Background:
The record is a 104-nucleotide RNA from Jatropha curcas, which matches "Small nucleolar RNA Z157/R69/R10" in Rfam.

[Rfam]
RNA sequence: GCAAUUGCAGUGAUGAAUCCAUUGUGGUGGACUAGAGUUUCUGAUUGGGACUCUUCUUUCCCAUUAGUUUGAAGACUAACCCUUGGCUGUCUGAGCAAGCUUGC
Numbered sequence: 001g002c003a004a005u006u007g008c009a010g011u012g013a014u015g016a017a018u019c020c021a022u023u024g025u026g027g028u029g030g031a032c033u034a035g036a037g038u039u040u041c042u043g044a045u046u047g048g049g050a051c052u053c054u055u056c057u058u059u060c061c062c063a064u065u066a067g068u069u070u071g072a073a074g075a076c077u078a079a080c081c082c083u084u085g086g087c088u089g090u091c092u093g094a095g096c097a098a099g100c101u102u103g104c
Stems, first nucleotide, its partner, number of pairs: 001104004005098004038074004045066001046063005
Its family is annotated with RNA processing and nucleolus in the Gene Ontology. NCBI's taxonomy places the organism under Eukaryota, Magnoliopsida, Gunneridae, fabids, Jatropha. It scores 63 bits against the family's covariance model.